RNA sequence: GGUUGAGAUGAGGAUAACAUUGUCUGAAUACCACGGUGUAGACUAAAAUUACAGACUACAAUUAUCUGAUCAACC
Numbered sequence: 001g002g003u004u005g006a007g008a009u010g011a012g013g014a015u016a017a018c019a020u021u022g023u024c025u026g027a028a029u030a031c032c033a034c035g036g037u038g039u040a041g042a043c044u045a046a047a048a049u050u051a052c053a054g055a056c057u058a059c060a061a062u063u064a065u066c067u068g069a070u071c072a073a074c075c
Stems, first nucleotide, its partner, number of pairs: 001075006
The family of this 75-nucleotide RNA sequence from Kalanchoe fedtschenkoi is "Small nucleolar RNA Z155". The family's RNA type in Rfam is C/D-box small nucleolar RNA. On this family, see Chen et al., Nucleic Acids Res 2003: "The high diversity of snoRNAs in plants: identification and comparative study of 120 snoRNA genes from Oryza sativa". A search with the family's covariance model found it, with a score of 56 bits.